[Rfam]
RNA: PyrR binding site
Organism: Leuconostocaceae bacterium R-53105
RNA sequence: AAAACCUUUAAUCAGGUCCUGCGAGGCCUGCAAGGAGUUCAAUUAAUUACAGGGUCGCACUGGAUUCUCGUAAUUCUUUUUAGCCAAGCAGGGAACGCUACCUGCUUGGCUUUUUUUAU
Numbered sequence: 001a002a003a004a005c006c007u008u009u010a011a012u013c014a015g016g017u018c019c020u021g022c023g024a025g026g027c028c029u030g031c032a033a034g035g036a037g038u039u040c041a042a043u044u045a046a047u048u049a050c051a052g053g054g055u056c057g058c059a060c061u062g063g064a065u066u067c068u069c070g071u072a073a074u075u076c077u078u079u080u081u082a083g084c085c086a087a088g089c090a091g092g093g094a095a096c097g098c099u100a101c102c103u104g105c106u107u108g109g110c111u112u113u114u115u116u117u118a119u
Stems, first nucleotide, its partner, number of pairs: 005035004013030006045075006052068002054065003082111011